[Rfam]
RNA sequence: CGCCCCGGCUCGGCGCGCUCUUCCCCAAAGGAACGGGAGAAGGAACCAGCCAACCCCAACGGCCAACUCCCGUCGAUACACGAUCGGGUGACGGAGUGUCCGGAUAUCGGAGCGGUGAGGUACGGUCGGCCGCAACAACCUCACACAGACGUCGGCCCCCGGCAGGACUGCAAUCCACACCGAGGGCCUGACCAUCAAGGAAGCUGAAGACCUUCCCC
Numbered sequence: 001c002g003c004c005c006c007g008g009c010u011c012g013g014c015g016c017g018c019u020c021u022u023c024c025c026c027a028a029a030g031g032a033a034c035g036g037g038a039g040a041a042g043g044a045a046c047c048a049g050c051c052a053a054c055c056c057c058a059a060c061g062g063c064c065a066a067c068u069c070c071c072g073u074c075g076a077u078a079c080a081c082g083a084u085c086g087g088g089u090g091a092c093g094g095a096g097u098g099u100c101c102g103g104a105u106a107u108c109g110g111a112g113c114g115g116u117g118a119g120g121u122a123c124g125g126u127c128g129g130c131c132g133c134a135a136c137a138a139c140c141u142c143a144c145a146c147a148g149a150c151g152u153c154g155g156c157c158c159c160c161g162g163c164a165g166g167a168c169u170g171c172a173a174u175c176c177a178c179a180c181c182g183a184g185g186g187c188c189u190g191a192c193c194a195u196c197a198a199g200g201a202a203g204c205u206g207a208a209g210a211c212c213u214u215c216c217c218c
Base pairs, nucleotide, nucleotide: 007196008195017063018062019061077090078089079088081086100129101128102127103126154188155187156186157185158184160182161181162180165176166175167174199216200215201214202213203212
Dot-bracket structure: ......((........(((.........................................))).............(((.(....).))).........((((......................))))........................(((((.(((..(((......)))...))).)))))......))..(((((........)))))..

A member of the RNA family "Streptomyces sRNA 4677" from Streptomyces sp. SLBN-118, 218 nucleotides long. Lineage of the source: Bacteria > Bacillati > Actinomycetota > Streptomycetaceae > Streptomyces. Located in the intergenic region between anti-sigma factor SCO4677 gene and a putative regulatory protein gene SCO4676. scr4677 expression requires the SCO4677 activity and scr4677 sRNA itself seem to affect the levels of the SCO4676-associated transcripts. A reference for the family is Hindra et al. (2014), "Complex intra-operonic dynamics mediated by a small RNA in Streptomyces coelicolor", PLoS One. Rfam 15.1 lists 563 matches to the family in 285 species. A search with the family's covariance model found it, with a score of 64 bits.